[Rfam]
RNA sequence: CCGAUGCGGGAUCGCCACCAGUCAGCGCGUUGCGCCCACUGGUGCCGUUGGC
Numbered sequence: 001c002c003g004a005u006g007c008g009g010g011a012u013c014g015c016c017a018c019c020a021g022u023c024a025g026c027g028c029g030u031u032g033c034g035c036c037c038a039c040u041g042g043u044g045c046c047g048u049u050g051g052c
Stems, first nucleotide, its partner, number of pairs: 016044007025035004
This 52-nucleotide RNA from Actibacterium naphthalenivorans belongs to the Rfam family "ffh sRNA". The family's RNA type in Rfam is small RNA. For this family Rfam cites "Identification of candidate structured RNAs in the marine organism 'Candidatus Pelagibacter ubique'" (Meyer et al., BMC Genomics, 2009). A search with the family's covariance model found it, with a score of 56 bits. Taxonomically the source falls in Actibacterium (Bacteria, Pseudomonadati, Pseudomonadota, Alphaproteobacteria). The base pairs follow the family's consensus structure, which is taken from published work.